[Rfam]
RNA sequence: GGUCUUACCCGGCAGAGGAGAUGGCAUGAUCAUGAAAAUGGUUUUUCCCAGGGUGAGCUUACCCAUUGCAUUCUGAUGUGCUGAUUUCCGUGAUUUCCCCAAAUAUGGGAAACUCACUUGGCUGCAUAAUUGGUGGUAGUGGGGGCUGUGUUAUGCUCCCUCCU
Numbered sequence: 001g002g003u004c005u006u007a008c009c010c011g012g013c014a015g016a017g018g019a020g021a022u023g024g025c026a027u028g029a030u031c032a033u034g035a036a037a038a039u040g041g042u043u044u045u046u047c048c049c050a051g052g053g054u055g056a057g058c059u060u061a062c063c064c065a066u067u068g069c070a071u072u073c074u075g076a077u078g079u080g081c082u083g084a085u086u087u088c089c090g091u092g093a094u095u096u097c098c099c100c101a102a103a104u105a106u107g108g109g110a111a112a113c114u115c116a117c118u119u120g121g122c123u124g125c126a127u128a129a130u131u132g133g134u135g136g137u138a139g140u141g142g143g144g145g146c147u148g149u150g151u152u153a154u155g156c157u158c159c160c161u162c163c164u
Stems, first nucleotide, its partner, number of pairs: 012125004017047005023042001025040003051087002056082003062078001064075001091116003094112003098108002141163005148156003
This 164-nucleotide RNA from Pan troglodytes belongs to the Rfam family "U1 spliceosomal RNA".
Lineage of the source: Eukaryota > Theria > Euarchontoglires > Primates > Pan.
From the family's description: U1 is a small nuclear RNA (snRNA) component of the spliceosome (involved in pre-mRNA splicing). Its 5' end forms complementary base pairs with the 5' splice junction, thus defining the 5' donor site of an intron. There are significant differences in sequence and secondary structure between metazoan and yeast U1 snRNAs, the latter being much longer (568 nucleotides as compared to 164 nucleotides in human). Nevertheless, secondary structure predictions suggest that all U1 snRNAs share a 'common core' consisting of helices I, II, the proximal region of III, and IV. This family does not contain the larger yeast sequences.
It is annotated as a spliceosomal small nuclear RNA.
The match comes from Rfam's covariance-model search (76 bits).
The family is grouped with related families in Rfam's "U1 clan".